[Rfam]
RNA sequence: AAGGUGGCCUAUGCCACCGCUAUGGAUUGGUUUAUAGCGGUGUGCUACGCCUUU
Numbered sequence: 001a002a003g004g005u006g007g008c009c010u011a012u013g014c015c016a017c018c019g020c021u022a023u024g025g026a027u028u029g030g031u032u033u034a035u036a037g038c039g040g041u042g043u044g045c046u047a048c049g050c051c052u053u054u
Stems, first nucleotide, its partner, number of pairs: 001054003006051003010047002013045002015042006022035005